[Rfam]
RNA: Bacterial RNase P class A
Organism: Terriglobus saanensis
RNA sequence: CAGACGGACCGGAUGAUCGCCGCCAGCGUUCGCAAGAACAACGGGGGAGGAAAGUCCGAACUCCGCAGGGCAGUGUGCCGGGUAACGCCCGGGAUGCUGGUUUCAAGACCAGCAGACGGCAAGUGCCACAGAGAAGAUACCGCCCCUGGCAACAGAGGUAAGGGUGAAAAGGUGCGGUAAGAGCGCACCGCGCAGGCAGUAAUGCAGGCGGCAAGGUAAACCCCACACGGAGCAAGACCAAAUAGGCGGGAAGAGGCAGCAAUGCCGAACGCGCUGGCCCGGCGCGUCAAACUCGCGGGUAGGUCGCUUGAGCCAUGCAGCGAUGCAUGGCCUAGAGGAAUGAUCAUCGACCGGCAACGGUUACAAAAUUCGGCUUACAGGUCCGUCUGCUCA
Numbered sequence: 001c002a003g004a005c006g007g008a009c010c011g012g013a014u015g016a017u018c019g020c021c022g023c024c025a026g027c028g029u030u031c032g033c034a035a036g037a038a039c040a041a042c043g044g045g046g047g048a049g050g051a052a053a054g055u056c057c058g059a060a061c062u063c064c065g066c067a068g069g070g071c072a073g074u075g076u077g078c079c080g081g082g083u084a085a086c087g088c089c090c091g092g093g094a095u096g097c098u099g100g101u102u103u104c105a106a107g108a109c110c111a112g113c114a115g116a117c118g119g120c121a122a123g124u125g126c127c128a129c130a131g132a133g134a135a136g137a138u139a140c141c142g143c144c145c146c147u148g149g150c151a152a153c154a155g156a157g158g159u160a161a162g163g164g165u166g167a168a169a170a171g172g173u174g175c176g177g178u179a180a181g182a183g184c185g186c187a188c189c190g191c192g193c194a195g196g197c198a199g200u201a202a203u204g205c206a207g208g209c210g211g212c213a214a215g216g217u218a219a220a221c222c223c224c225a226c227a228c229g230g231a232g233c234a235a236g237a238c239c240a241a242a243u244a245g246g247c248g249g250g251a252a253g254a255g256g257c258a259g260c261a262a263u264g265c266c267g268a269a270c271g272c273g274c275u276g277g278c279c280c281g282g283c284g285c286g287u288c289a290a291a292c293u294c295g296c297g298g299g300u301a302g303g304u305c306g307c308u309u310g311a312g313c314c315a316u317g318c319a320g321c322g323a324u325g326c327a328u329g330g331c332c333u334a335g336a337g338g339a340a341u342g343a344u345c346a347u348c349g350a351c352c353g354g355c356a357a358c359g360g361u362u363a364c365a366a367a368a369u370u371c372g373g374c375u376u377a378c379a380g381g382u383c384c385g386u387c388u389g390c391u392c393a
Base pairs, nucleotide, nucleotide: 001389002388003387004386005385006384007383008382009381010380011378012348013347014346015345016344017343018342020047021046023044024043028039029038030037052376053375054374056373057372058371059370060369061232062231063230064229068280069279070278071277073228074227075226076225077224078092079091080090081089082088093117095114096113097112098111099110100109101108102107118223119222123221124220125217126216127215140163141162142159143158144157146155147154148153171189172188173187174186175185176184190212191210192209193208196205197204198203236305237304238303239302246296247295248294249293250292271285272284273283274282275281312331313330314329315328316327317326318325319324